A member of the RNA family "Bacillus-plasmid RNA" from Pteruthius melanotis, 57 nucleotides long. A search with the family's covariance model found it, with a score of 33 bits.

[Rfam]
RNA sequence: GGGGUAAAUGGCAAGAAUGAAGAAAGGAGAAGAUAAGGAAUUUACCCCUUCAUUAUC
Numbered sequence: 001g002g003g004g005u006a007a008a009u010g011g012c013a014a015g016a017a018u019g020a021a022g023a024a025a026g027g028a029g030a031a032g033a034u035a036a037g038g039a040a041u042u043u044a045c046c047c048c049u050u051c052a053u054u055a056u057c
Base pairs, nucleotide, nucleotide: 001048002047003046004045005044006043007042008041009040